The family of this 92-nucleotide RNA from Medicago truncatula is "MIR2617 microRNA precursor family". It scores 69 bits against the family's covariance model. The base pairs follow the family's consensus structure, which was predicted with RNAalifold.
RNA sequence: AUGUAGUGUAGCAUGCCCGUUUGUGGAAUUACUCUGAUGUGAAAUUUUAUUAUUAUUUAAAUGAUUUUGGAUAACGGGAUGUUACACAUUCA
Numbered sequence: 001a002u003g004u005a006g007u008g009u010a011g012c013a014u015g016c017c018c019g020u021u022u023g024u025g026g027a028a029u030u031a032c033u034c035u036g037a038u039g040u041g042a043a044a045u046u047u048u049a050u051u052a053u054u055a056u057u058u059a060a061a062u063g064a065u066u067u068u069g070g071a072u073a074a075c076g077g078g079a080u081g082u083u084a085c086a087c088a089u090u091c092a
Base pairs, nucleotide, nucleotide: 002092003091005089006087007086008085009084010083011082012081013080014079016078017077018076019075020074021073